RNA sequence: UCAUCGUGAAAAGCUUCCUGACCUUGAUGCUGAGUAUAUUAUCCACCCUACUGAAGGACAGUAGUUUGGUGGCAGUCUUAUACACUAUGGUAAGCCUGUAAUUAAAUAGUAUAAGCAAUGUUUAAUUAUAUUACUAGCCUUAGAUGAAAAUUAGUUGCCUACAGUGCUACCCCUUUCGGAGUAAUUGAAAGAUCGCUUUGACGAGCCCAGUGUGGAAGAGCCGUCUGGAGUGCCUGUAGUGUUAUAAUUAGUAAUUGUAGAUAGGUGUAGUUUUGAUAGGGAUACAC
Numbered sequence: 001u002c003a004u005c006g007u008g009a010a011a012a013g014c015u016u017c018c019u020g021a022c023c024u025u026g027a028u029g030c031u032g033a034g035u036a037u038a039u040u041a042u043c044c045a046c047c048c049u050a051c052u053g054a055a056g057g058a059c060a061g062u063a064g065u066u067u068g069g070u071g072g073c074a075g076u077c078u079u080a081u082a083c084a085c086u087a088u089g090g091u092a093a094g095c096c097u098g099u100a101a102u103u104a105a106a107u108a109g110u111a112u113a114a115g116c117a118a119u120g121u122u123u124a125a126u127u128a129u130a131u132u133a134c135u136a137g138c139c140u141u142a143g144a145u146g147a148a149a150a151u152u153a154g155u156u157g158c159c160u161a162c163a164g165u166g167c168u169a170c171c172c173c174u175u176u177c178g179g180a181g182u183a184a185u186u187g188a189a190a191g192a193u194c195g196c197u198u199u200g201a202c203g204a205g206c207c208c209a210g211u212g213u214g215g216a217a218g219a220g221c222c223g224u225c226u227g228g229a230g231u232g233c234c235u236g237u238a239g240u241g242u243u244a245u246a247a248u249u250a251g252u253a254a255u256u257g258u259a260g261a262u263a264g265g266u267g268u269a270g271u272u273u274u275g276a277u278a279g280g281g282a283u284a285c286a287c
Stems, first nucleotide, its partner, number of pairs: 077094005098129011133271004143256003150248004161237004169231002172228002177223003196205002206215002
About this RNA
This 287-nucleotide RNA sequence from Alphacoronavirus miniopteri belongs to the Rfam family "Alphacoronavirus 3'UTR". Lineage of the source: Viruses > Pisoniviricetes > Nidovirales > Minunacovirus > Miniopterus bat coronavirus HKU8. The base pairs follow the family's consensus structure. The literature on the family includes a 2014 paper in Virus Res by Madhugiri et al., "RNA structure analysis of alphacoronavirus terminal genome regions". Rfam's curators write: The 3' UTR of alphacoronaviruses consists of two small hairpins (PK-SL2) which can form an alternate conformation (PK-SL1) where the loop region of the second hairpin interacts with the stem of the first hairpin. PK-SL2 has been confirmed in HCoV-229E and HCoV-NL63 by in vitro structure probing experiments. Downstream of this pseudoknot lies the hypervariable region (HVR), which is supported by many covarying basepairs in alphacoronaviruses. By type it is a cis-regulatory element. It scores 202 bits against the family's covariance model. Clan: Coronavirus 3' UTR. Its family is annotated with viral RNA genome replication in the Gene Ontology.